Overview: The record is an 87-nucleotide RNA from Hibiscus syriacus, which matches "Small nucleolar RNA R11/Z151" in Rfam. The family has 5 seed sequences and 802 matches in Rfam 15.1. For this family Rfam cites "Identification of 66 box C/D snoRNAs in Arabidopsis thaliana: extensive gene duplications generated multiple isoforms predicting new ribosomal RNA 2'-O-methylation sites" (Barneche et al., J Mol Biol, 2001). Rfam classes the family as a C/D-box small nucleolar RNA. The source organism's lineage runs through Eukaryota, Streptophyta, Embryophyta, Magnoliopsida and Hibiscus.
[Rfam]
RNA sequence: AGGCUAAUGAUGAUAAUUUUAAAUUAUCUUAGCGGAUUUCAGUGAGAUUGUGCUGUCAAUGAUGUGCUUGUUACUCACAUGAGGCCU
Numbered sequence: 001a002g003g004c005u006a007a008u009g010a011u012g013a014u015a016a017u018u019u020u021a022a023a024u025u026a027u028c029u030u031a032g033c034g035g036a037u038u039u040c041a042g043u044g045a046g047a048u049u050g051u052g053c054u055g056u057c058a059a060u061g062a063u064g065u066g067c068u069u070g071u072u073a074c075u076c077a078c079a080u081g082a083g084g085c086c087u
Stems, first nucleotide, its partner, number of pairs: 001087005